The record is a 99-nucleotide RNA sequence from Paenibacillus yonginensis, which matches "c-di-GMP-I riboswitch aptamer" in Rfam. The source organism's lineage runs through Bacteria, Bacillati, Bacilli, Caryophanales and Paenibacillus. The base pairs follow the family's consensus structure, which is taken from published work.

RNA sequence: UUACAUAUUUGGCACACUAACCGAAAGGUUAGCUCGCAAAGCCUCGGAAUCUACAAGUCUUGACCCAGGUCUCUGACUCAUGAUCGUCCGGCUGCACUU
Numbered sequence: 001u002u003a004c005a006u007a008u009u010u011g012g013c014a015c016a017c018u019a020a021c022c023g024a025a026a027g028g029u030u031a032g033c034u035c036g037c038a039a040a041g042c043c044u045c046g047g048a049a050u051c052u053a054c055a056a057g058u059c060u061u062g063a064c065c066c067a068g069g070u071c072u073c074u075g076a077c078u079c080a081u082g083a084u085c086g087u088c089c090g091g092c093u094g095c096a097c098u099u
Stems, first nucleotide, its partner, number of pairs: 012037002017032006040093004046089003049084003056078004
It scores 51 bits against the family's covariance model.